[Rfam]
RNA sequence: ACGCUCCUUAAAAGCACUGGUUAUCGGAUCCAAUCUUAUCCAUGCCAGCCGUCAAAUGAGAGCAAUAUGAAACAUCUUGUUUUUGGGUGAGGUGCGACUAAAUCAGGUCGUGUCUCAAUAACACGAUGACAAUC
Numbered sequence: 001a002c003g004c005u006c007c008u009u010a011a012a013a014g015c016a017c018u019g020g021u022u023a024u025c026g027g028a029u030c031c032a033a034u035c036u037u038a039u040c041c042a043u044g045c046c047a048g049c050c051g052u053c054a055a056a057u058g059a060g061a062g063c064a065a066u067a068u069g070a071a072a073c074a075u076c077u078u079g080u081u082u083u084u085g086g087g088u089g090a091g092g093u094g095c096g097a098c099u100a101a102a103u104c105a106g107g108u109c110g111u112g113u114c115u116c117a118a119u120a121a122c123a124c125g126a127u128g129a130c131a132a133u134c
Stems, first nucleotide, its partner, number of pairs: 003063004014052002017048005026041004083126003086122001088117006095110005
The family of this 134-nucleotide RNA from Caenorhabditis angaria is "Caenorhabditis snoRNA ceN82". The family has 6 seed sequences and 22 matches in Rfam 15.1. For this family Rfam cites "Systematic identification of non-coding RNA 2,2,7-trimethylguanosine cap structures in Caenorhabditis elegans" (Jia et al., BMC Mol Biol, 2007). Rfam classes the family as an H/ACA-box small nucleolar RNA.